[Rfam]
RNA sequence: CAUAUAGAACAGCCGAAUUCCACUUAAUAAAUUGGAAACGGGGGAACCAACGCGCGCCGUAAUGGGCAACAACGGCCGCAAGGGGUGAAUUCUGGUCGGAGGCAAUAUGCUCCGACCGGAUAGGGCGUCCGUCACGCCCGAAUCCGUCAGCUAACCUCGGAGGCUGCAUGACAGGACUC
Numbered sequence: 001c002a003u004a005u006a007g008a009a010c011a012g013c014c015g016a017a018u019u020c021c022a023c024u025u026a027a028u029a030a031a032u033u034g035g036a037a038a039c040g041g042g043g044g045a046a047c048c049a050a051c052g053c054g055c056g057c058c059g060u061a062a063u064g065g066g067c068a069a070c071a072a073c074g075g076c077c078g079c080a081a082g083g084g085g086u087g088a089a090u091u092c093u094g095g096u097c098g099g100a101g102g103c104a105a106u107a108u109g110c111u112c113c114g115a116c117c118g119g120a121u122a123g124g125g126c127g128u129c130c131g132u133c134a135c136g137c138c139c140g141a142a143u144c145c146g147u148c149a150g151c152u153a154a155c156c157u158c159g160g161a162g163g164c165u166g167c168a169u170g171a172c173a174g175g176a177c178u179c
Base pairs, nucleotide, nucleotide: 011165012164013163014162018037019036020035021034022033039159040158041157042156043155048082083145084144085143091120092119093118094117095116096115097114098113099112100111101110123139124138125137126136
Shown here is a 179-nucleotide sequence from Paenibacillaceae bacterium GAS479, a member of the family "c-di-AMP riboswitch aptamer (ydaO/yuaA leader)". A search with the family's covariance model found it, with a score of 78 bits. A reference for the family is Barrick et al. (2004), "New RNA motifs suggest an expanded scope for riboswitches in bacterial genetic control", Proc Natl Acad Sci U S A. NCBI's taxonomy places the organism under Bacteria, Bacillati, Bacillota, Caryophanales, Paenibacillaceae.